[Rfam]
RNA sequence: UUCGUGCGGCUGCAUGGCUUUAUUUUCCCCAGUGUUGCUCAUAGCUGCGCGUUCUACGCGGCUGUUCGAGUGUCAAGCCAUGCCCAGAGCGACACGAGCGUCUUAGCACCUUUUGUCCACGUACCUGCUUCUUAUUGGCAGCAAUCGCGUGCGUGGGCGGGUCGGUGGCUCCGGAUAUCU
Numbered sequence: 001u002u003c004g005u006g007c008g009g010c011u012g013c014a015u016g017g018c019u020u021u022a023u024u025u026u027c028c029c030c031a032g033u034g035u036u037g038c039u040c041a042u043a044g045c046u047g048c049g050c051g052u053u054c055u056a057c058g059c060g061g062c063u064g065u066u067c068g069a070g071u072g073u074c075a076a077g078c079c080a081u082g083c084c085c086a087g088a089g090c091g092a093c094a095c096g097a098g099c100g101u102c103u104u105a106g107c108a109c110c111u112u113u114u115g116u117c118c119a120c121g122u123a124c125c126u127g128c129u130u131c132u133u134a135u136u137g138g139c140a141g142c143a144a145u146c147g148c149g150u151g152c153g154u155g156g157g158c159g160g161g162u163c164g165g166u167g168g169c170u171c172c173g174g175a176u177a178u179c180u
Stems, first nucleotide, its partner, number of pairs: 016084003020080001037071004045061004095174001096171004113160009123150002
RNA: small nucleolar RNA snR35
Organism: Dentipellis sp. KUC8613